RNA sequence: CUAUGUUGUCUUUCUUGGACGUUUCCUCCCUAAACUUCAGGGGCCGCACUUUGUUGCGGCCCUCUUUUUUUGUCCAAA
Number, nucleotide and partner (000 for none) at each position: 001c000002u000003a000004u000005g000006u000007u000008g020009u019010c018011u017012u000013u000014c000015u000016u000017g011018g010019a009020c008021g000022u000023u000024u000025c000026c000027u000028c000029c000030c000031u000032a000033a000034a000035c000036u000037u000038c000039a000040g063041g062042g061043g060044c059045c058046g057047c056048a055049c000050u000051u000052u000053g000054u000055u048056g047057c046058g045059g044060c043061c042062c041063u040064c000065u000066u000067u000068u000069u000070u000071u000072g000073u000074c000075c000076a000077a000078a000
The family of this 78-nucleotide sequence from Insolitispirillum peregrinum is "Makes More Granules Regulator RNA (mmgR)". The match comes from Rfam's covariance-model search (66 bits). The pairing is the family consensus, mapped onto this sequence.